[Rfam]
RNA sequence: UGGUAGAUGCACCCUGAUAACUCACUCCCUUAGUUGGUUUAUACCUACUAGGGGGUUUUUUA
Numbered sequence: 001u002g003g004u005a006g007a008u009g010c011a012c013c014c015u016g017a018u019a020a021c022u023c024a025c026u027c028c029c030u031u032a033g034u035u036g037g038u039u040u041a042u043a044c045c046u047a048c049u050a051g052g053g054g055g056u057u058u059u060u061u062a
Stems, first nucleotide, its partner, number of pairs: 002013003027054008036045002
This 62-nucleotide RNA sequence from Tolypothrix sp. NIES-4075 belongs to the Rfam family "Nitrogen stress-induced RNA 1".
The source organism's lineage runs through Bacteria, Bacillati, Cyanophyceae, Tolypothrichaceae and Tolypothrix.
A reference for the family is Ionescu et al. (2010), "Heterocyst-specific transcription of NsiR1, a non-coding RNA encoded in a tandem array of direct repeats in cyanobacteria", J Mol Biol.
Rfam 15.1 lists 962 matches to the family in 163 species.